RNA sequence: UUACUGGACGCUUCAGUUAUUGAACUGUUUUGUCACUCUCUGACAAAGAACAAAUUGUUCUCUGUCAGAGAGUGACAAAACAGUUCAUUAUAUAUCAUGUUUCCAAUGGC
Numbered sequence: 001u002u003a004c005u006g007g008a009c010g011c012u013u014c015a016g017u018u019a020u021u022g023a024a025c026u027g028u029u030u031u032g033u034c035a036c037u038c039u040c041u042g043a044c045a046a047a048g049a050a051c052a053a054a055u056u057g058u059u060c061u062c063u064g065u066c067a068g069a070g071a072g073u074g075a076c077a078a079a080a081c082a083g084u085u086c087a088u089u090a091u092a093u094a095u096c097a098u099g100u101u102u103c104c105a106a107u108g109g110c
Stems, first nucleotide, its partner, number of pairs: 001109003005105002011099001013097001015095001018092003021087008029069004034064002049059004
RNA: mir-8517 microRNA precursor family
Organism: Plutella xylostella